[Rfam]
RNA sequence: ACAGUGGUAAUUCCUACGAUUAAGAAACCUGUUUACAGAAGGAUCCCCACCUAUGGGCGGGUUAUCAGAUAUUAUCAGGUGGGAAAUUCGGUGGAACACAGUGGAGCCUUGUCCUCCGGGUUAAUGUCGCUUUUGGCAUUGGCCCCUGCUCCUGAGAGAAGAAAUAUACUGGGGAACCAGUCUUUACCGACCGUUGUUAUCAGAAAUUCACGGAGUUCGGCCUAGGUCGGACUCCGAUGGGAACGGCAACGGUUGUUCCGUUUGACUUGUCGCCCGCUACGGCGUGAGCGUCAAGGUCUGUUGAGUGCAAUCGUAGGACGUCAUUAGUGGCGAACCCGAUACCGAUUACUGCUGCUGU
Dot-bracket structure: ((((..(((..(((((((........(((((..........((((((...........)))..))).........)))))........[[[[[((((.................................................(.(((....))).).......(((((....)))))..........(((((((............(((....................)))........)))))))...)))).....................................................)))))))(((((....))))).......]]]]].....)))..))))
Source information:
This 358-nucleotide sequence from Saccharomyces cerevisiae belongs to the Rfam family "Nuclear RNase P". The literature on the family includes a 1998 paper in Annu Rev Biochem by Frank and Pace, "Ribonuclease P: unity and diversity in a tRNA processing ribozyme". Rfam's curators put it in the seed alignment. By type it is a ribozyme. The source organism's lineage runs through Eukaryota, Opisthokonta, Fungi, Saccharomycetales and Saccharomyces.